[Rfam]
RNA: Mammalian CPEB3 ribozyme
Organism: Crocodylus porosus
RNA sequence: GGUUGUAAGUUUGAAGUCAUAGUAGAAGUGUUCAUGGCGCAGCCUGUUAGAUCCCAAUGAAUCUGAGAGUUCUGCU
Number, nucleotide and partner (000 for none) at each position: 001g000002g000003u000004u000005g000006u000007a000008a000009g000010u000011u000012u000013g044014a000015a000016g043017u042018c000019a000020u000021a076022g075023u074024a073025g072026a071027a070028g040029u039030g038031u000032u000033c000034a000035u000036g000037g000038c030039g029040c028041a000042g017043c016044c013045u000046g000047u000048u065049a064050g063051a062052u061053c000054c059055c000056a000057a000058u000059g054060a000061a052062u051063c050064u049065g048066a000067g000068a000069g000070u027071u026072c025073u024074g023075c022076u021